[Rfam]
A member of the RNA family "Small nucleolar RNA SNORD90" from Semnornis frantzii, 113 nucleotides long. For this family Rfam cites "RNomics: an experimental approach that identifies 201 candidates for novel, small, non-messenger RNAs in mouse" (Huttenhofer et al., EMBO J, 2001). Rfam classes the family as a C/D-box small nucleolar RNA. Gene Ontology terms of the family: nucleolus and RNA processing.
RNA sequence: AGAUUCCCUUUCUUGUGUCUUAUGAUGAAGCUUCAUAGGGCAGAUUCUGAGCUGAGAAAUUUAAUUUCUCUCCACUGAUUCUCUCUAUAUGCCAUCUGAAGACACUACAUGUU
Numbered sequence: 001a002g003a004u005u006c007c008c009u010u011u012c013u014u015g016u017g018u019c020u021u022a023u024g025a026u027g028a029a030g031c032u033u034c035a036u037a038g039g040g041c042a043g044a045u046u047c048u049g050a051g052c053u054g055a056g057a058a059a060u061u062u063a064a065u066u067u068c069u070c071u072c073c074a075c076u077g078a079u080u081c082u083c084u085c086u087a088u089a090u091g092c093c094a095u096c097u098g099a100a101g102a103c104a105c106u107a108c109a110u111g112u113u
Base pairs, nucleotide, nucleotide: 013107015105016104017103018102019101020100030095034091035090036089038084039083040082043079046078047077049075051073054070055069056068057067058066